[Rfam]
A member of the RNA family "Small nucleolar RNA SNORA3/SNORA45 family", 131 nucleotides long. For this family Rfam cites "RNomics: an experimental approach that identifies 201 candidates for novel, small, non-messenger RNAs in mouse" (Huttenhofer et al., EMBO J, 2001). The family's consensus secondary structure was predicted with RNAalifold. Rfam's curators put it in the seed alignment. The members of this family belong to the H/ACA class of snoRNAs which are thought to guide the sites of modification of uridines to pseudouridines. By type it is an H/ACA-box small nucleolar RNA.

RNA sequence: GCCGAGACUAGAGUCACAUCCUGACACAACUCUUGUCCUGGUGUGCUAGAGUACUCGAAGAGAAUCUACUGGUCUUGAUUCACUGGUGGGGGCAGUCGGUGCCCCCGUUAGUGCCCAGAUCAGAAACAUAC
Number, nucleotide and partner (000 for none) at each position: 001g000002c000003c057004g056005a055006g054007a052008c051009u050010a000011g000012a047013g046014u000015c045016a044017c043018a042019u041020c040021c000022u000023g037024a036025c035026a034027c000028a000029a000030c000031u000032c000033u000034u026035g025036u024037c023038c000039u000040g020041g019042u018043g017044u016045g015046c013047u012048a000049g000050a009051g008052u007053a000054c006055u005056c004057g003058a000059a000060g000061a000062g000063a000064a000065u000066c000067u000068a000069c123070u122071g121072g120073u119074c118075u117076u000077g115078a000079u000080u000081c113082a112083c111084u110085g109086g108087u000088g106089g105090g104091g103092g102093c101094a000095g000096u000097c000098g000099g000100u000101g093102c092103c091104c090105c089106c088107g000108u086109u085110a084111g083112u082113g081114c000115c077116c000117a075118g074119a073120u072121c071122a070123g069124a000125a000126a000127c000128a000129u000130a000131c000